[Rfam]
RNA sequence: GCAUGGAUGAAUUCUGCACUAGCUUUCCUCAGUAGCUGAUGCAGUCAGACACCAUGCCAGAGCAAAUUCCUUUUUCCCACUGUGCCUGGUGUGCUUUUUCAUGGGAAUGAGCAUCCGUUGGGAGGGGAAUACAUCC
Numbered sequence: 001g002c003a004u005g006g007a008u009g010a011a012u013u014c015u016g017c018a019c020u021a022g023c024u025u026u027c028c029u030c031a032g033u034a035g036c037u038g039a040u041g042c043a044g045u046c047a048g049a050c051a052c053c054a055u056g057c058c059a060g061a062g063c064a065a066a067u068u069c070c071u072u073u074u075u076c077c078c079a080c081u082g083u084g085c086c087u088g089g090u091g092u093g094c095u096u097u098u099u100c101a102u103g104g105g106a107a108u109g110a111g112c113a114u115c116c117g118u119u120g121g122g123a124g125g126g127g128a129a130u131a132c133a134u135c136c
Stems, first nucleotide, its partner, number of pairs: 001057006014044005071128002073125007086117001088115005094109001096107001
The family of this 136-nucleotide RNA from Dicaeum eximium is "Small nucleolar RNA SNORA15". A search with the family's covariance model found it, with a score of 70 bits. Rfam describes the family as follows. ACA15 is a member of the H/ACA class of snoRNA that guide the sites of modification of uridines to pseudouridines. Taxonomically the source falls in Dicaeum (Eukaryota, Gnathostomata, Sarcopterygii, Dipnotetrapodomorpha). For this family Rfam cites "RNomics: an experimental approach that identifies 201 candidates for novel, small, non-messenger RNAs in mouse" (Huttenhofer et al., EMBO J, 2001).